[Rfam]
Source information:
This 100-nucleotide sequence from Vibrio xiamenensis belongs to the Rfam family "Tryptophan operon leader". It scores 57 bits against the family's covariance model. Taxonomically the source falls in Vibrio (Bacteria, Pseudomonadati, Pseudomonadota, Vibrionales). Pairs were carried over by alignment from the consensus structure, which is taken from published work.
RNA sequence: UUGGCUUGGUGGCGCACUUGGACUGGUUCUUGGUGGGCUGACCUGCGCUGUUAAAACGACACGCCAUUGCAAAGCCCGCUCACUCAGCGGGCUUUUUUGU
Numbered sequence: 001u002u003g004g005c006u007u008g009g010u011g012g013c014g015c016a017c018u019u020g021g022a023c024u025g026g027u028u029c030u031u032g033g034u035g036g037g038c039u040g041a042c043c044u045g046c047g048c049u050g051u052u053a054a055a056a057c058g059a060c061a062c063g064c065c066a067u068u069g070c071a072a073a074g075c076c077c078g079c080u081c082a083c084u085c086a087g088c089g090g091g092c093u094u095u096u097u098u099g100u
Stems, first nucleotide, its partner, number of pairs: 009042002012039001015035004020030003073093007